This 181-nucleotide RNA from Hypnocyclicus thermotrophus belongs to the Rfam family "Lysine riboswitch aptamer". Taxonomically the source falls in Hypnocyclicus (Bacteria, Fusobacteriati, Fusobacteriales, Fusobacteriaceae).

[Rfam]
RNA sequence: UUAGAUGAUAGAGGCGCGAAGCUUAAAAGUACAAAUAUGGAGAAACCUAUUCUAUGAAGUAUUUGGAAAGGAAGAUUCGCCGAAGUGUAUAACCUUAGGAAAGUUAUAUGCUGGUUUUAUGGAUAAUAUCCAUGAAACUGUCAUUAUUAUUGUAGUAUAAUAAUGGAGUGCUAUCUGCUAA
Numbered sequence: 001u002u003a004g005a006u007g008a009u010a011g012a013g014g015c016g017c018g019a020a021g022c023u024u025a026a027a028a029g030u031a032c033a034a035a036u037a038u039g040g041a042g043a044a045a046c047c048u049a050u051u052c053u054a055u056g057a058a059g060u061a062u063u064u065g066g067a068a069a070g071g072a073a074g075a076u077u078c079g080c081c082g083a084a085g086u087g088u089a090u091a092a093c094c095u096u097a098g099g100a101a102a103g104u105u106a107u108a109u110g111c112u113g114g115u116u117u118u119a120u121g122g123a124u125a126a127u128a129u130c131c132a133u134g135a136a137a138c139u140g141u142c143a144u145u146a147u148u149a150u151u152g153u154a155g156u157a158u159a160a161u162a163a164u165g166g167a168g169u170g171c172u173a174u175c176u177g178c179u180a181a
Stems, first nucleotide, its partner, number of pairs: 007175005016080005022074003032065007084112010095101001113139011141166009